The family of this 106-nucleotide RNA sequence from Niastella yeongjuensis is "TPP riboswitch aptamer (THI element)".
The organism belongs to Niastella, within Bacteria.
RNA sequence: UUCAGUUUCCCGGGGUGCUUUUCUGUCACUGGCAGAAUUGCUGAGAAAAUACCCGUAGAACCUGAUCAGGGUAAUGCCUGCGCAGGGAAGGUAGCUCCGAAAUUGU
Numbered sequence: 001u002u003c004a005g006u007u008u009c010c011c012g013g014g015g016u017g018c019u020u021u022u023c024u025g026u027c028a029c030u031g032g033c034a035g036a037a038u039u040g041c042u043g044a045g046a047a048a049a050u051a052c053c054c055g056u057a058g059a060a061c062c063u064g065a066u067c068a069g070g071g072u073a074a075u076g077c078c079u080g081c082g083c084a085g086g087g088a089a090g091g092u093a094g095c096u097c098c099g100a101a102a103u104u105g106u
Base pairs, nucleotide, nucleotide: 006094007093009091010090011055012054013053014052016049017041018040021037022036023035024034025033026032061086062085063084064083067080068079069078070077

Gene Ontology term of the family: thiamine pyrophosphate binding.